[Rfam]
RNA sequence: GGUUUCUAUUGGUGUAAAUCCAAUCAGCUCAAUUUUCGAUGAGAAACAAUUUCCCAGUGGUAGCAAAUGUUAUAUAUUAAGCGGGGAAAUCCUAU
Numbered sequence: 001g002g003u004u005u006c007u008a009u010u011g012g013u014g015u016a017a018a019u020c021c022a023a024u025c026a027g028c029u030c031a032a033u034u035u036u037c038g039a040u041g042a043g044a045a046a047c048a049a050u051u052u053c054c055c056a057g058u059g060g061u062a063g064c065a066a067a068u069g070u071u072a073u074a075u076a077u078u079a080a081g082c083g084g085g086g087a088a089a090u091c092c093u094a095u
Stems, first nucleotide, its partner, number of pairs: 009023004052086004056077001060073004
This 95-nucleotide RNA from Rhabdodendron amazonicum belongs to the Rfam family "Plastid-rps12 3UTR RNA". About the family: Plastid rpl20 is a non-coding RNA (ncRNA) recognised in plastids. It was found in the three prime untranslated region (3UTR) of rps12 gene, its 3UTR location sugest a role in transcript maduration. Rfam classes the family as a cis-regulatory element. Rfam 15.1 lists 1,710 matches to the family in 1,426 species.